[Rfam]
RNA sequence: AUGCCAUGAUGAGGACAUCUUCUGAGCAACUCUUUAAAUCUCUCCUAAGCCUAAUACAAGUUCUCAUCUUCAAGUUAGUUAAAAGAGGUGAUCUCAUUCUGCAAUUU
Numbered sequence: 001a002u003g004c005c006a007u008g009a010u011g012a013g014g015a016c017a018u019c020u021u022c023u024g025a026g027c028a029a030c031u032c033u034u035u036a037a038a039u040c041u042c043u044c045c046u047a048a049g050c051c052u053a054a055u056a057c058a059a060g061u062u063c064u065c066a067u068c069u070u071c072a073a074g075u076u077a078g079u080u081a082a083a084a085g086a087g088g089u090g091a092u093c094u095c096a097u098u099c100u101g102c103a104a105u106u107u
Stems, first nucleotide, its partner, number of pairs: 001107001003105001005101002057074001060071001

The record is a 107-nucleotide RNA from Citrus unshiu, which matches "Plant small nucleolar RNA R71" in Rfam. The literature on the family includes a 2003 paper in Trends Plant Sci by Brown et al., "Plant snoRNAs: functional evolution and new modes of gene expression". Gene Ontology terms of the family: nucleolus and RNA processing.